[Rfam]
RNA sequence: CGUUGUCGGUGCGACUGGCGACGAGAAUGGAACACCAUCGGGGAGCAUCGAUUUUUUUAGCCGCGCGCCCGGAUACCCGAU
Numbered sequence: 001c002g003u004u005g006u007c008g009g010u011g012c013g014a015c016u017g018g019c020g021a022c023g024a025g026a027a028u029g030g031a032a033c034a035c036c037a038u039c040g041g042g043g044a045g046c047a048u049c050g051a052u053u054u055u056u057u058u059a060g061c062c063g064c065g066c067g068c069c070c071g072g073a074u075a076c077c078c079g080a081u
Stems, first nucleotide, its partner, number of pairs: 005052008015042002017069004027038004060074001062072001